[Rfam]
RNA sequence: AUGAAAUUUAUCACAAACCAAACAUACCCCUUUGUUUGAGUGUAAAUUUCUCCCAUCCCCUUUGUUUAAAUACCGCGUAAUCAGACGCGGUAUUUUU
Numbered sequence: 001a002u003g004a005a006a007u008u009u010a011u012c013a014c015a016a017a018c019c020a021a022a023c024a025u026a027c028c029c030c031u032u033u034g035u036u037u038g039a040g041u042g043u044a045a046a047u048u049u050c051u052c053c054c055a056u057c058c059c060c061u062u063u064g065u066u067u068a069a070a071u072a073c074c075g076c077g078u079a080a081u082c083a084g085a086c087g088c089g090g091u092a093u094u095u096u097u
Stems, first nucleotide, its partner, number of pairs: 003050006012042003019038006069094010
The family of this 97-nucleotide RNA from Macrococcus lamae is "RNA Staph. aureus E (RoxS)". On this family, see Geissmann et al., Nucleic Acids Res 2009: "A search for small noncoding RNAs in Staphylococcus aureus reveals a conserved sequence motif for regulation". Pairs were carried over by alignment from the consensus structure, which is taken from published work. By type it is a small RNA. It was shown to be regulated by the presence of nitric oxide (NO). In Bacillus subtilis it controls expression of genes with functions related to oxidative stress and oxidation-reduction reactions and it was renamed RoxS (for related to oxidative stress).